[Rfam]
RNA sequence: AUAAUGAUACUUCCGGUUUUUCCGGUCAAUAUAGAAUGACGGUGCGAUACCGAUGU
Numbered sequence: 001a002u003a004a005u006g007a008u009a010c011u012u013c014c015g016g017u018u019u020u021u022c023c024g025g026u027c028a029a030u031a032u033a034g035a036a037u038g039a040c041g042g043u044g045c046g047a048u049a050c051c052g053a054u055g056u
Stems, first nucleotide, its partner, number of pairs: 012053001013025004026039003040052003

The family of this 56-nucleotide RNA from Roseburia sp. 1XD42-69 is "pemK RNA".
The family's RNA type in Rfam is cis-regulatory element.